[Rfam]
Annotation: The record is a 262-nucleotide sequence from Parasporobacterium paucivorans, which matches "Bacterial large signal recognition particle RNA" in Rfam. From the family's description: The signal recognition particle (SRP) is a universally conserved ribonucleoprotein involved in the co-translational targeting of proteins to membranes. It scores 191 bits against the family's covariance model. Lineage of the source: Bacteria > Lachnospirales > Lachnospiraceae > Parasporobacterium > Parasporobacterium paucivorans. Pairs were carried over by alignment from the consensus structure, which is taken from published work.
Nucleotides: 262
Base pairs, nucleotide, nucleotide: 001262002261003260004259005258006257008056009055010054011029012028013027014026016024017023018022033053034052035051036050037049061255062254063253064252065251066250070246071245072244073243074242078239079238080237081236082235083234084233085232086231089227090226093224094223095222096221097220098219101217102216103214104213105212112208113207114206115205116204117203118202119201120197121196122195123194124193125192126188127187129186130185131184132183133182135178136177137176138175139174145170146169147168148167153162154161155160
Number, partner (000 for none) and nucleotide at each position: 001262c002261c003260g004259u005258g006257c007000a008056g009055c010054c011029g012028g013027g014026g015000a016024g017023u018022c019000a020000g021000c022018g023017g024016u025000g026014c027013c028012c029011u030000g031000u032000a033053c034052c035051u036050g037049c038000a039000a040000u041000c042000c043000g044000c045000u046000a047000u048000a049037g050036c051035a052034g053033g054010g055009g056008u057000g058000a059000u060000g061255u062254u063253u064252c065251g066250c067000c068000u069000c070246g071245g072244g073243u074242g075000g076000a077000a078239g079238c080237u081236u082235g083234c084233a085232g086231a087000g088000c089227u090226g091000c092000c093224c094223c095222u096221g097220a098219u099000a100000a101217g102216u103214g104213a105212c106000a107000a108000u109000g110000a111000c112208g113207c114206u115205u116204g117203g118202g119201u120197c121196u122195u123194a124193c125192g126188c127187a128000a129186u130185g131184g132183g133182a134000a135178u136177u137176u138175a139174c140000g141000a142000a143000c144000c145170g146169u147168g148167u149000c150000a151000g152000g153162u154161c155160a156000g157000g158000a159000a160155u161154g162153a163000a164000g165000c166000a167148g168147c169146a170145c171000u172000a173000a174139g175138u176137a177136g178135a179000a180000c181000c182133u183132c184131c185130c186129g187127u188126g189000u190000g191000c192125c193124g194123u195122g196121a197120g198000g199000g200000u201119g202118c203117c204116u205115g206114g207113g208112c209000c210000g211000a212105g213104u214103u215000a216102a217101c218000u219098g220097u221096c222095a223094g224093g225000g226090u227089a228000a229000c230000g231086u232085c233084u234083g235082u236081g237080g238079g239078u240000c241000a242074u243073a244072u245071u246070c247000a248000a249000a250066g251065c252064g253063a254062a255061a256000c257006g258005c259004a260003c261002g262001g